[Rfam]
RNA sequence: GGCCUCGCCAAGGGGUGUUAACGCCAAGCCAUAGCUUAGCGAUUGACUGAGAUGUCCGCGGGACGAACCCUUAGAACCUGAUCCGGCUAAUACCGGCGUAGGAAUGGGCCACAUCACUAGA
Dot-bracket structure: .......(((((((.((((((.....................)))))......((((...)))))..)))).....((((..((((......))))..))))..)))..............
Notes:
Shown here is a 121-nucleotide RNA from Shewanella loihica, a member of the family "TPP riboswitch aptamer (THI element)". Its family is annotated with thiamine pyrophosphate binding in the Gene Ontology.